Notes:
A member of the RNA family "Plant small nucleolar RNA U3" from Physcomitrium patens, 231 nucleotides long. From the family's description: Small nucleolar RNAs (snoRNAs) are involved in the processing and modification of rRNA in the nucleolus. There are two main classes of snoRNAs: the box C/D class, and the box H/ACA class. U3 snoRNA is a member of the box C/D class. Indeed, the box C/D element is a subset of the six short sequence elements found in all U3 snoRNAs, namely boxes A, A', B, C, C', and D. The U3 snoRNA secondary structure is characterised by a small 5' domain (with boxes A and A'), and a larger 3' domain (with boxes B, C, C', and D), the two domains being linked by a single-stranded hinge. Boxes B and C form the B/C motif, which appears to be exclusive to U3 snoRNAs, and boxes C' and D form the C'/D motif. The latter is functionally similar to the C/D motifs found in other snoRNAs. The 5' domain and the hinge region act as a pre-rRNA-binding domain. The 3' domain has conserved protein-binding sites. Both the box B/C and box C'/D motifs are sufficient for nuclear retention of U3 snoRNA. The box C'/D motif is also necessary for nucleolar localisation, stability and hyper-methylation of U3 snoRNA. Both box B/C and C'/D motifs are involved in specific protein interactions and are necessary for the rRNA processing functions of U3 snoRNA. Clan: U3 clan. Rfam links the family to the GO terms nucleolus and RNA processing. The organism belongs to Physcomitrium, within Eukaryota.
RNA sequence: ACGACUAUACUUGAACAGGAUCUGUUCAAUAGUGCGUACAUCUGAUCUGUAUUCUCCAAUGCAGACAAGACCUCCACCCCGGACGAUGAUUCAGGGCUCCCCGGCCUGAGCGCGAUUGCCGCGGGUGGUGUCCAGUGCCUCCCUCGCGGGGUCCGACCCCGGCCUGCCAGAUGAACGUCCCGCCCCCUCAUUCCUGGGAGCGGUGAUGGCCGGAGAGCGUUCUGACGGGCA
Numbered sequence: 001a002c003g004a005c006u007a008u009a010c011u012u013g014a015a016c017a018g019g020a021u022c023u024g025u026u027c028a029a030u031a032g033u034g035c036g037u038a039c040a041u042c043u044g045a046u047c048u049g050u051a052u053u054c055u056c057c058a059a060u061g062c063a064g065a066c067a068a069g070a071c072c073u074c075c076a077c078c079c080c081g082g083a084c085g086a087u088g089a090u091u092c093a094g095g096g097c098u099c100c101c102c103g104g105c106c107u108g109a110g111c112g113c114g115a116u117u118g119c120c121g122c123g124g125g126u127g128g129u130g131u132c133c134a135g136u137g138c139c140u141c142c143c144u145c146g147c148g149g150g151g152u153c154c155g156a157c158c159c160c161g162g163c164c165u166g167c168c169a170g171a172u173g174a175a176c177g178u179c180c181c182g183c184c185c186c187c188u189c190a191u192u193c194c195u196g197g198g199a200g201c202g203g204u205g206a207u208g209g210c211c212g213g214a215g216a217g218c219g220u221u222c223u224g225a226c227g228g229g230c231a
Stems, first nucleotide, its partner, number of pairs: 001037002005032003013027006043067002046065001048063006078229004096218004101213006110178003121167006180203004185198003